[Rfam]
Plastid-psbN 5UTR RNA: a 61-nucleotide RNA from Coleofasciculus sp. LEGE 07092. The base pairs follow the family's consensus structure, which was predicted with LocARNA. On this family, see Zhelyazkova et al., Plant Cell 2012: "The primary transcriptome of barley chloroplasts: numerous noncoding RNAs and the dominating role of the plastid-encoded RNA polymerase". Rfam describes the family as follows. Plastid psbN is a non-coding RNA (ncRNA) recognised in plastids. It was reported as a conserved 11 stem-loop in the prime untranslated region (5UTR) of psbN genes. A search with the family's covariance model found it, with a score of 55 bits. It is annotated as a cis-regulatory element.

RNA sequence: GAAGACUGCCAUCAGUGGCGUAGUUCCCCAACCGGGAGCAACUUUACCAUACUCAGAAUUC
Numbered sequence: 001g002a003a004g005a006c007u008g009c010c011a012u013c014a015g016u017g018g019c020g021u022a023g024u025u026c027c028c029c030a031a032c033c034g035g036g037a038g039c040a041a042c043u044u045u046a047c048c049a050u051a052c053u054c055a056g057a058a059u060u061c
Base pairs, nucleotide, nucleotide: 017045018044020042021041023039024038025037026036027035